[Rfam]
RNA sequence: AUGAUGACCAUGAGAGAGCUUGCUGCUGGACAGCACGCCGAAGGGGCAAGAGCAAUCGAAACUCUCAGGCAAAAGGAUCAUGGUCGGACG
Numbered sequence: 001a002u003g004a005u006g007a008c009c010a011u012g013a014g015a016g017a018g019c020u021u022g023c024u025g026c027u028g029g030a031c032a033g034c035a036c037g038c039c040g041a042a043g044g045g046g047c048a049a050g051a052g053c054a055a056u057c058g059a060a061a062c063u064c065u066c067a068g069g070c071a072a073a074a075g076g077a078u079c080a081u082g083g084u085c086g087g088a089c090g
Base pairs, nucleotide, nucleotide: 006085007084008083009082010081011080012079013078020035037070038069039068040066041065044064045063046062050057051056